[Rfam]
RNA sequence: UUCCAUAUUGCCAAUGAUGGAUCCUUUGUUGAACUGAUUACUUGUGAUUUCAUUCAACAAUUCGUCACUACCACUGAGGCAAUACUUAA
Numbered sequence: 001u002u003c004c005a006u007a008u009u010g011c012c013a014a015u016g017a018u019g020g021a022u023c024c025u026u027u028g029u030u031g032a033a034c035u036g037a038u039u040a041c042u043u044g045u046g047a048u049u050u051c052a053u054u055c056a057a058c059a060a061u062u063c064g065u066c067a068c069u070a071c072c073a074c075u076g077a078g079g080c081a082a083u084a085c086u087u088a089a
Base pairs, nucleotide, nucleotide: 001089002088006084007083008082009081010080011079012078